[Rfam]
RNA sequence: AUCGCCGCCGCCUCGGAUUCGCUUGGUGCAGGUCGGGAACGCCUCGGAUCGCCGCGCCGCCCGUGAUCGCGCCGCGUUCCCGCCUGCACCAACUGAAUCGGAGCCGGAAACGCGA
Numbered sequence: 001a002u003c004g005c006c007g008c009c010g011c012c013u014c015g016g017a018u019u020c021g022c023u024u025g026g027u028g029c030a031g032g033u034c035g036g037g038a039a040c041g042c043c044u045c046g047g048a049u050c051g052c053c054g055c056g057c058c059g060c061c062c063g064u065g066a067u068c069g070c071g072c073c074g075c076g077u078u079c080c081c082g083c084c085u086g087c088a089c090c091a092a093c094u095g096a097a098u099c100g101g102a103g104c105c106g107g108a109a110a111c112g113c114g115a
Base pairs, nucleotide, nucleotide: 013102014101017098018097019096020095023092024091025090026089027088028087029086030085031084032083034082035081036080037079038078040076041075
RNA: MIR168 microRNA precursor family